[Rfam]
RNA: SAM (S-adenosyl methionine) riboswitch aptamer
Organism: Microlunatus kandeliicorticis
RNA sequence: GGUCACGAGAUCGAGCGCGAAGCCCCGGCUGGCUCGACGGCAACCCUCUCCUGACCCCCGGACGGAUCCGGGUGGUCACGGCGGCGGGGUGCUCCGGGUGACGACCCGGCCGGUCCGCGAGGGCCGGCAAGCGCCGAGA
Numbered sequence: 001g002g003u004c005a006c007g008a009g010a011u012c013g014a015g016c017g018c019g020a021a022g023c024c025c026c027g028g029c030u031g032g033c034u035c036g037a038c039g040g041c042a043a044c045c046c047u048c049u050c051c052u053g054a055c056c057c058c059c060g061g062a063c064g065g066a067u068c069c070g071g072g073u074g075g076u077c078a079c080g081g082c083g084g085c086g087g088g089g090u091g092c093u094c095c096g097g098g099u100g101a102c103g104a105c106c107c108g109g110c111c112g113g114u115c116c117g118c119g120a121g122g123g124c125c126g127g128c129a130a131g132c133g134c135c136g137a138g139a
Base pairs, nucleotide, nucleotide: 001106002105003104004103009038011037012036013035014034015033016032021030022029039093040092041091044089045088046087048084049083109128110127111126112125113124114123115122116121
Dot-bracket structure: ((((....(.((((((....((......)).)))))))(((..(((.((.................................))..))).))).........))))..((((((((....))))))))...........